[Rfam]
RNA sequence: AAAGUAGGGUCAAAAGGCUCCUUAAACCAGUAAUGGUUUAAUGCAAAUAGGGUGAAUUGCAAAGACAUCCUAGUACAAAUGGACAAUUUGCAGCGAAGCUUACUUCGGUAAAAUUAAACAAUUUGGAGUAAGAACGUCCAACGACUAACAAGUGAGUUUUACCAACAAUAAACUUGACACGAGUACCCUACAACCAAUUAAUUUUAUAAUCAAAUUGGUUGAAGACAUAGUCUAAGCCAAUAGGUGACUAUUGG
Numbered sequence: 001a002a003a004g005u006a007g008g009g010u011c012a013a014a015a016g017g018c019u020c021c022u023u024a025a026a027c028c029a030g031u032a033a034u035g036g037u038u039u040a041a042u043g044c045a046a047a048u049a050g051g052g053u054g055a056a057u058u059g060c061a062a063a064g065a066c067a068u069c070c071u072a073g074u075a076c077a078a079a080u081g082g083a084c085a086a087u088u089u090g091c092a093g094c095g096a097a098g099c100u101u102a103c104u105u106c107g108g109u110a111a112a113a114u115u116a117a118a119c120a121a122u123u124u125g126g127a128g129u130a131a132g133a134a135c136g137u138c139c140a141a142c143g144a145c146u147a148a149c150a151a152g153u154g155a156g157u158u159u160u161a162c163c164a165a166c167a168a169u170a171a172a173c174u175u176g177a178c179a180c181g182a183g184u185a186c187c188c189u190a191c192a193a194c195c196a197a198u199u200a201a202u203u204u205u206a207u208a209a210u211c212a213a214a215u216u217g218g219u220u221g222a223a224g225a226c227a228u229a230g231u232c233u234a235a236g237c238c239a240a241u242a243g244g245u246g247a248c249u250a251u252u253g254g
Base pairs, nucleotide, nucleotide: 006022007021008020009019011017026037027036028035048190049189050188051187053185054184058092059091060090061089062088063087068083069082070081093137094136100130106126108124110122141233143232144231145230146229147228193219194218195217196216197215198214199213239252240251241250242249243248
Notes: The family of this 254-nucleotide sequence from Mortierella sp. AM989 is "Group I catalytic intron". Rfam describes the family as follows. Group I catalytic introns are large self-splicing ribozymes. They catalyse their own excision from mRNA, tRNA and rRNA precursors in a wide range of organisms. The core secondary structure consists of 9 paired regions (P1-P9). These fold to essentially two domains - the P4-P6 domain (formed from the stacking of P5, P4, P6 and P6a helices) and the P3-P9 domain (formed from the P8, P3, P7 and P9 helices). The secondary structure mark-up for this family represents only this conserved core. Group I catalytic introns often have long ORFs inserted in loop regions. The window size for this search is chosen to minimise search time and catch the small examples. A larger window size will find more matches. It scores 95 bits against the family's covariance model. Rfam 15.1 lists 5,602 matches to the family in 1,395 species. The literature on the family includes a 1996 paper in Science by Cate et al., "Crystal structure of a group I ribozyme domain: principles of RNA packing". The base pairs follow the family's consensus structure, which is taken from published work.